[Rfam]
RNA sequence: AAAUCCUUUAACUCUGUCCCGUGAGGCAGACAAGGAGACGGUCAAGAGGGGAGUUUGUGCUACCCUUAUUUGGGGAAUCUCCUUGGACAUGAGGAGAUUCUUUUUUGU
Numbered sequence: 001a002a003a004u005c006c007u008u009u010a011a012c013u014c015u016g017u018c019c020c021g022u023g024a025g026g027c028a029g030a031c032a033a034g035g036a037g038a039c040g041g042u043c044a045a046g047a048g049g050g051g052a053g054u055u056u057g058u059g060c061u062a063c064c065c066u067u068a069u070u071u072g073g074g075g076a077a078u079c080u081c082c083u084u085g086g087a088c089a090u091g092a093g094g095a096g097a098u099u100c101u102u103u104u105u106u107g108u
Stems, first nucleotide, its partner, number of pairs: 004036005013030006044069001046067005052061003072103014
RNA: PyrR binding site
Organism: Streptococcus sp. DD12